[Rfam]
RNA sequence: UUGACAACACCUUCUGUUGAUAAGACUGUGGGGUCUCAUUUGCCGUGGACAUGACCACAAAACAUUUUUCCGACUAGGUUUUCUUUCUGCUACGUUGCUAGCAUUCAUCCUAUUGGGAACAUUA
Numbered sequence: 001u002u003g004a005c006a007a008c009a010c011c012u013u014c015u016g017u018u019g020a021u022a023a024g025a026c027u028g029u030g031g032g033g034u035c036u037c038a039u040u041u042g043c044c045g046u047g048g049a050c051a052u053g054a055c056c057a058c059a060a061a062a063c064a065u066u067u068u069u070c071c072g073a074c075u076a077g078g079u080u081u082u083c084u085u086u087c088u089g090c091u092a093c094g095u096u097g098c099u100a101g102c103a104u105u106c107a108u109c110c111u112a113u114u115g116g117g118a119a120c121a122u123u124a
Base pairs, nucleotide, nucleotide: 003055005053006052010048011047028043029042030041031040070117071116073114077110078109080107088103089102090101

Description
Small nucleolar RNA SNORA32: a 124-nucleotide RNA from Rhinolophus ferrumequinum. Rfam classes the family as an H/ACA-box small nucleolar RNA. Gene Ontology terms of the family: nucleolus and RNA processing. About the family: ACA32 is a member of the H/ACA class of snoRNA that guide the sites of modification of uridines to pseudouridines. Pairs were carried over by alignment from the consensus structure, which was predicted with RNAfold. Lineage of the source: Eukaryota > Deuterostomia > Vertebrata > Amniota > Rhinolophus.